Rfam assigns this 573-nucleotide sequence from Lactobacillus phage Lbab1 to the family "ROOL RNA".
The family's consensus secondary structure is taken from published work.
Firmicutes, Fusobacteria (1 example), Tenericutes (1 example).
By type it is a small RNA.
The organism belongs to Mooreparkvirus, within Viruses.
Nucleotides: 573
Base pairs, nucleotide, nucleotide: 007570008569009568010567011566012565013564014563015562016561017560018559019558020557021556022555025058026057027056028055029054037051038050039049040048041047060166062164063163064162065161080114081113082111083110084109086107088105089104090103091102092101093100094099119134120133121132122131123130124129139154140153141152142151143150173536174535175534176533177532178531179530180529182527183526189517192353193352194351197347198346199345200344201343202342203288204287205286206285207284208283219228220227221226234273235272236271237270238269239268244263245262246261247260248259250257252279253278254277255276289373290372291371292370293369357426363421364420365419366418409498410497411496430447431446432445449511450510451509452460463507466504467503469501474492475491476490477489478488479487480486
Number, partner (000 for none) and nucleotide at each position: 001000c002000c003000u004000u005000g006000a007570a008569a009568a010567c011566u012565g013564a014563a015562u016561c017560c018559g019558a020557u021556u022555c023000a024000a025058c026057c027056c028055u029054g030000u031000g032000u033000a034000u035000a036000a037051g038050g039049u040048g041047g042000u043000u044000g045000c046000u047041c048040c049039g050038c051037c052000g053000u054029c055028a056027g057026g058025g059000a060166u061000a062164c063163c064162u065161a066000u067000g068000c069000u070000a071000a072000u073000u074000a075000a076000a077000a078000g079000c080114g081113a082111g083110u084109a085000a086107u087000u088105u089104c090103a091102u092101a093100a094099g095000g096000a097000u098000a099094c100093u101092u102091g103090u104089g105088a106000u107086a108000u109084u110083a111082u112000a113081u114080c115000a116000g117000a118000a119134u120133a121132u122131a123130c124129g125000g126000u127000a128000a129124c130123g131122u132121a133120u134119a135000g136000g137000a138000a139154g140153a141152c142151u143150g144000u145000a146000a147000a148000a149000g150143c151142a152141g153140u154139c155000a156000a157000g158000u159000u160000g161065u162064a163063g164062g165000c166060a167000g168000u169000g170000c171000u172000a173536g174535u175534u176533g177532u178531u179530g180529u181000g182527g183526c184000a185000u186000a187000a188000g189517g190000c191000a192353u193352a194351g195000a196000a197347c198346u199345g200344g201343u202342u203288g204287g205286a206285u207284g208283a209000g210000u211000a212000a213000u214000a215000g216000a217000c218000g219228c220227c221226c222000a223000g224000u225000u226221g227220g228219g229000a230000a231000u232000a233000a234273g235272c236271c237270a238269a239268u240000a241000a242000g243000c244263c245262c246261c247260u248259g249000u250257g251000g252279u253278a254277g255276c256000g257250c258000u259248u260247g261246g262245g263244g264000a265000a266000a267000c268239a269238u270237u271236g272235g273234u274000a275000g276255g277254c278253u279252g280000u281000a282000a283208u284207c285206a286205u287204c288203u289373u290372a291371g292370c293369u294000a295000u296000g297000a298000a299000a300000a301000g302000c303000g304000g305000a306000a307000g308000g309000c310000a311000c312000c313000g314000u315000u316000u317000g318000g319000u320000a321000a322000u323000u324000g325000a326000a327000a328000g329000g330000u331000u332000a333000c334000c335000a336000u337000c338000a339000u340000a341000a342202a343201a344200c345199c346198a347197g348000a349000a350000g351194c352193u353192a354000g355000u356000a357426a358000a359000a360000g361000u362000a363421g364420g365419u366418c367000a368000a369293g370292g371291c372290u373289a374000a375000c376000a377000a378000u379000u380000u381000g382000a383000a384000u385000a386000u387000g388000c389000a390000a391000u392000a393000u394000u395000a396000g397000a398000a399000u400000a401000a402000u403000u404000a405000c406000a407000a408000a409498u410497c411496g412000a413000a414000u415000g416000c417000a418366g419365a420364c421363u422000g423000a424000a425000a426357u427000u428000u429000g430447g431446g432445u433000a434000c435000u436000a437000u438000a439000a440000a441000g442000u443000a444000c445432g446431c447430c448000c449511u450510c451509a452460u453000g454000a455000u456000u457000a458000a459000a460452a461000a462000g463507c464000a465000u466504u467503u468000a469501g470000u471000u472000g473000u474492u475491a476490u477489a478488a479487g480486g481000u482000a483000g484000c485000u486480c487479c488478u489477u490476a491475u492474a493000g494000c495000a496411c497410g498409g499000a500000c501469u502000a503467a504466a505000u506000g507463g508000g509451u510450g511449g512000g513000u514000a515000g516000c517189c518000u519000a520000a521000u522000a523000a524000u525000g526183g527182u528000a529180g530179c531178a532177a533176c534175a535174a536173u537000g538000u539000g540000g541000u542000a543000g544000g545000a546000g547000u548000a549000a550000a551000a552000g553000a554000c555022g556021g557020a558019u559018c560017g561016g562015g563014u564013u565012u566011a567010g568009u569008u570007u571000u572000u573000a